[Rfam]
RNA: Metazoan signal recognition particle RNA
Organism: Sphaeroforma arctica
RNA sequence: CCGGGAGUGUGCCGCGGCACUCUGUGAGCCGAGUGGCCGGUUGGUUUUGGGAUGCUAUCAGUUGGUAAGACUAUUGCAACAAGUCUGUACUGAGCCGCCCCUAGAAUGGCGAUGUUUCUAUUGGCUCAAAGGGGUAGCUCUUUGGGUCGAGGGAAUUGAAUAGAGGGAGACUGUCCCAGGCGGGAAACCGAACAGGAGAACCUCUCAGCAUUGCUACGUCUCAGGGAAAACAGCUCGUGCGUUGUACUACACACUGCUGGUGGACCAAAACUUUU
Numbered sequence: 001c002c003g004g005g006a007g008u009g010u011g012c013c014g015c016g017g018c019a020c021u022c023u024g025u026g027a028g029c030c031g032a033g034u035g036g037c038c039g040g041u042u043g044g045u046u047u048u049g050g051g052a053u054g055c056u057a058u059c060a061g062u063u064g065g066u067a068a069g070a071c072u073a074u075u076g077c078a079a080c081a082a083g084u085c086u087g088u089a090c091u092g093a094g095c096c097g098c099c100c101c102u103a104g105a106a107u108g109g110c111g112a113u114g115u116u117u118c119u120a121u122u123g124g125c126u127c128a129a130a131g132g133g134g135u136a137g138c139u140c141u142u143u144g145g146g147u148c149g150a151g152g153g154a155a156u157u158g159a160a161u162a163g164a165g166g167g168a169g170a171c172u173g174u175c176c177c178a179g180g181c182g183g184g185a186a187a188c189c190g191a192a193c194a195g196g197a198g199a200a201c202c203u204c205u206c207a208g209c210a211u212u213g214c215u216a217c218g219u220c221u222c223a224g225g226g227a228a229a230a231c232a233g234c235u236c237g238u239g240c241g242u243u244g245u246a247c248u249a250c251a252c253a254c255u256g257c258u259g260g261u262g263g264a265c266c267a268a269a270a271c272u273u274u275u
Stems, first nucleotide, its partner, number of pairs: 001040003004023007028037003043272008053262005059256004065250003075246001079245004091237005097231001098226002101224002103221003107216009116155004121150013156162001163206005172199001174197003181190003